[Rfam]
RNA sequence: AGAAACUGCCUUUCAGGCAUCCUCUCCCAAAACUUUCAGCCCGGCCGGCAACGGUCGGGCUUUUUUCUUGGGGGCA
Numbered sequence: 001a002g003a004a005a006c007u008g009c010c011u012u013u014c015a016g017g018c019a020u021c022c023u024c025u026c027c028c029a030a031a032a033c034u035u036u037c038a039g040c041c042c043g044g045c046c047g048g049c050a051a052c053g054g055u056c057g058g059g060c061u062u063u064u065u066u067c068u069u070g071g072g073g074g075c076a
Base pairs, nucleotide, nucleotide: 008018009017010016011015038061039060040059041058042057043056044055045054046053
RNA: Makes More Granules Regulator RNA (mmgR)
Organism: Novosphingobium nitrogenifigens